[Rfam]
RNA: Small nucleolar RNA SNORD56
Organism: Neotoma lepida
RNA sequence: CCAAUGUGAUGGAUGUCUCAGCAAGAGCAGGUCACGUAGUAAGUACUGAUACUUUGGGUUUGAGUGA
Numbered sequence: 001c002c003a004a005u006g007u008g009a010u011g012g013a014u015g016u017c018u019c020a021g022c023a024a025g026a027g028c029a030g031g032u033c034a035c036g037u038a039g040u041a042a043g044u045a046c047u048g049a050u051a052c053u054u055u056g057g058g059u060u061u062g063a064g065u066g067a
Stems, first nucleotide, its partner, number of pairs: 002066002008022001010020002